This 90-nucleotide RNA sequence from Pseudodesulfovibrio piezophilus belongs to the Rfam family "Selenocysteine transfer RNA". A search with the family's covariance model found it, with a score of 81 bits.

[Rfam]
RNA sequence: GGAAGCGUUUCGGCACCGGUGUGUCGCUUGGUCUUCAAAACCAAUGUACGGCAGUGAUGUCGUAGGCAGGUUCGACUCCUGUACGCUUCC
Numbered sequence: 001g002g003a004a005g006c007g008u009u010u011c012g013g014c015a016c017c018g019g020u021g022u023g024u025c026g027c028u029u030g031g032u033c034u035u036c037a038a039a040a041c042c043a044a045u046g047u048a049c050g051g052c053a054g055u056g057a058u059g060u061c062g063u064a065g066g067c068a069g070g071u072u073c074g075a076c077u078c079c080u081g082u083a084c085g086c087u088u089c090c
Stems, first nucleotide, its partner, number of pairs: 001090008011026006028044005047064005067081004